Nucleotides: 099
Stems, first nucleotide, its partner, number of pairs: 013026005031071005050065006080093005
Number, partner (000 for none) and nucleotide at each position: 001000c002000g003000g004000a005000a006000c007000u008000c009000a010000u011000a012000a013026g014025g015024c016023a017022a018000u019000g020000u021000g022017u023016u024015g025014c026013c027000g028000a029000a030000a031071u032070c033069g034068u035067c036000u037000g038000c039000a040000a041000u042000c043000c044000g045000g046000g047000c048000a049000g050065c051064a052063u053062c054061a055060c056000g057000c058000a059000a060055g061054u062053g063052g064051u065050g066000u067035g068034a069033c070032g071031a072000c073000c074000g075000c076000g077000u078000u079000u080093g081092c082091u083090g084089c085000u086000g087000c088000g089084g090083c091082a092081g093080c094000c095000a096000u097000u098000u099000u
The family of this 99-nucleotide sequence is "DUF3577 RNA". The base pairs follow the family's consensus structure, which is taken from published work. It is annotated as a cis-regulatory element.